[Rfam]
RNA: Bacterial RNase P class A
Organism: Roseibium aggregatum
RNA sequence: UCAGUCGGCCGGACAGCCGCUGCCGCAAGUGCCGAAAGGCCGCGGGGGAGGAAAGUCCGGGCUCCAUGGAAACACGGUGCCGGGUAACGCCCGGCGAGGGCGACCUUAGGGAAAGUGCCACAGAAAGCAAACCGCCCCGGCCAGAUCGAGAGAUUUUCCCGGGGUAAGGGUGAAAGGGUGGGGUAAGAGCCCACCGCGCAACUGGCAACAGCGGCGGCAUGGUAAACCCCACCGGGAGCAAAACCGAAUAGGGACAGCGCGGACCGGAGCAAUCCGGUCCAGGCCGGUUUCCAGGCCAGUUGUCCGGGUUGGUUGCGAUAGGCGUCUGGCAACAGGCGUCACAGAUGAAUGGCUGUCACGUCCGCGUCAGGUCUCGUAUCUGGCCGGGCCAUACAGAACCCGGCUUACAGGCCGGCUGGCUCU
Numbered sequence: 001u002c003a004g005u006c007g008g009c010c011g012g013a014c015a016g017c018c019g020c021u022g023c024c025g026c027a028a029g030u031g032c033c034g035a036a037a038g039g040c041c042g043c044g045g046g047g048g049a050g051g052a053a054a055g056u057c058c059g060g061g062c063u064c065c066a067u068g069g070a071a072a073c074a075c076g077g078u079g080c081c082g083g084g085u086a087a088c089g090c091c092c093g094g095c096g097a098g099g100g101c102g103a104c105c106u107u108a109g110g111g112a113a114a115g116u117g118c119c120a121c122a123g124a125a126a127g128c129a130a131a132c133c134g135c136c137c138c139g140g141c142c143a144g145a146u147c148g149a150g151a152g153a154u155u156u157u158c159c160c161g162g163g164g165u166a167a168g169g170g171u172g173a174a175a176g177g178g179u180g181g182g183g184u185a186a187g188a189g190c191c192c193a194c195c196g197c198g199c200a201a202c203u204g205g206c207a208a209c210a211g212c213g214g215c216g217g218c219a220u221g222g223u224a225a226a227c228c229c230c231a232c233c234g235g236g237a238g239c240a241a242a243a244c245c246g247a248a249u250a251g252g253g254a255c256a257g258c259g260c261g262g263a264c265c266g267g268a269g270c271a272a273u274c275c276g277g278u279c280c281a282g283g284c285c286g287g288u289u290u291c292c293a294g295g296c297c298a299g300u301u302g303u304c305c306g307g308g309u310u311g312g313u314u315g316c317g318a319u320a321g322g323c324g325u326c327u328g329g330c331a332a333c334a335g336g337c338g339u340c341a342c343a344g345a346u347g348a349a350u351g352g353c354u355g356u357c358a359c360g361u362c363c364g365c366g367u368c369a370g371g372u373c374u375c376g377u378a379u380c381u382g383g384c385c386g387g388g389c390c391a392u393a394c395a396g397a398a399c400c401c402g403g404c405u406u407a408c409a410g411g412c413c414g415g416c417u418g419g420c421u422c423u
Base pairs, nucleotide, nucleotide: 001419002418003417004416005415006414007413008412009411010410011408012357013356014355015354016353017352018351020048021047023045024044025043026042053406054405055404057403058402059401060400061399062238063237064236065235070290071289072288073287075234076233077232078231079230080094081093082092083091084090095109096107097106098105099104110229111228115227116226117223118222119221132169133168134165135164136163137162138161139160140159177195178194179193180192181191182190196218197216198215199214202211203210204209242314243313244312245311252305253304254303255302256301257300282297283296284295285294321340322339323338324337325336326335327334328333